Shown here is a 118-nucleotide RNA sequence from Bactrocera dorsalis, a member of the family "U5 spliceosomal RNA".
Pairs were carried over by alignment from the consensus structure, which is taken from published work.
U5 RNA is a component of both types of known spliceosome. The precise function of this molecule is unknown, though it is known that the 5' loop is required for splice site selection and p220 binding, and that both the 3' stem-loop and the Sm site are important for Sm protein binding and cap methylation.
On this family, see Zwieb, Nucleic Acids Res 1997: "The uRNA database".
Taxonomically the source falls in Bactrocera dorsalis complex (Eukaryota, Panarthropoda, Mandibulata, Hexapoda).
[Rfam]
RNA sequence: AAACCUUGAUUUCUCUUCAGUUGUCAAAUAAAUCUUUCGCAUUUUACUAAAGAUAUCCGUGGAGAGGAGUAAUUUUAGGUCUAUAAGACGAACAUUACUAAAUCGACUCAGGCCGUUC
Numbered sequence: 001a002a003a004c005c006u007u008g009a010u011u012u013c014u015c016u017u018c019a020g021u022u023g024u025c026a027a028a029u030a031a032a033u034c035u036u037u038c039g040c041a042u043u044u045u046a047c048u049a050a051a052g053a054u055a056u057c058c059g060u061g062g063a064g065a066g067g068a069g070u071a072a073u074u075u076u077a078g079g080u081c082u083a084u085a086a087g088a089c090g091a092a093c094a095u096u097a098c099u100a101a102a103u104c105g106a107c108u109c110a111g112g113c114c115g116u117u118c
Stems, first nucleotide, its partner, number of pairs: 003080004009070011030056001032054006102117001104115002107112001